[Rfam]
RNA sequence: GGACACAUCAAGCCGAAUCACCUGGUCGGUACCCGGCCUGGUGUACGGGGGAUUUUCGUCCAAUACCUGUAUUGGACUGGGGUGAAUCGGGACCCAAAAAACGCUCAAUGUCCCGUAGGCCGCACUCGUCUGCCGAACCCGACAACUAACCCCGAAGGCGCCACGAGGGGAUGA
Numbered sequence: 001g002g003a004c005a006c007a008u009c010a011a012g013c014c015g016a017a018u019c020a021c022c023u024g025g026u027c028g029g030u031a032c033c034c035g036g037c038c039u040g041g042u043g044u045a046c047g048g049g050g051g052a053u054u055u056u057c058g059u060c061c062a063a064u065a066c067c068u069g070u071a072u073u074g075g076a077c078u079g080g081g082g083u084g085a086a087u088c089g090g091g092a093c094c095c096a097a098a099a100a101a102c103g104c105u106c107a108a109u110g111u112c113c114c115g116u117a118g119g120c121c122g123c124a125c126u127c128g129u130c131u132g133c134c135g136a137a138c139c140c141g142a143c144a145a146c147u148a149a150c151c152c153c154g155a156a157g158g159c160g161c162c163a164c165g166a167g168g169g170g171a172u173g174a
Base pairs, nucleotide, nucleotide: 012159013158014157019043020042021041022040046154047153048152049151050150055079080140081139082138088115089114090113091112092111093110118134119133120132
RNA: c-di-AMP riboswitch aptamer (ydaO/yuaA leader)